[Rfam]
Small nucleolar RNA Z43: a 99-nucleotide RNA from Camellia sinensis.
A reference for the family is Chen et al. (2003), "The high diversity of snoRNAs in plants: identification and comparative study of 120 snoRNA genes from Oryza sativa", Nucleic Acids Res.
It scores 99 bits against the family's covariance model.
Rfam links the family to the GO terms nucleolus and RNA processing.
NCBI's taxonomy places the organism under Eukaryota, Streptophyta, Mesangiospermae, Gunneridae, Camellia.
RNA sequence: GGACAGUGAUGACUACAUGUGAUUGGUCUCGUUCGUCGUAAUGGCAAUUAUAUUGCCUUGCCGACCAUCCUGAUAUAUCACCACCCAUAAACUGAGUCC
Dot-bracket structure: ((((.........................................((..........))....................................))))
Numbered sequence: 001g002g003a004c005a006g007u008g009a010u011g012a013c014u015a016c017a018u019g020u021g022a023u024u025g026g027u028c029u030c031g032u033u034c035g036u037c038g039u040a041a042u043g044g045c046a047a048u049u050a051u052a053u054u055g056c057c058u059u060g061c062c063g064a065c066c067a068u069c070c071u072g073a074u075a076u077a078u079c080a081c082c083a084c085c086c087a088u089a090a091a092c093u094g095a096g097u098c099c
Stems, first nucleotide, its partner, number of pairs: 001099004046059002